[Rfam]
Nucleotides: 089
Stems, first nucleotide, its partner, number of pairs: 001081009011047004016042001026037003049066006
Number, partner (000 for none) and nucleotide at each position: 001081g002080u003079c004078g005077g006076g007075a008074c009073g010000g011047g012046g013045g014044c015000g016042c017000c018000a019000u020000g021000c022000a023000a024000u025000a026037c027036c028035c029000u030000u031000u032000c033000g034000g035028g036027g037026g038000a039000a040000a041000a042016g043000c044014g045013u046012c047011c048000c049066g050065c051064c052063u053062g054061u055000c056000u057000c058000u059000c060000a061054g062053c063052a064051g065050g066049u067000u068000u069000c070000g071000a072000a073009c074008g075007u076006c077005c078004c079003g080002g081001c082000g083000c084000c085000a086000g087000c088000c089000u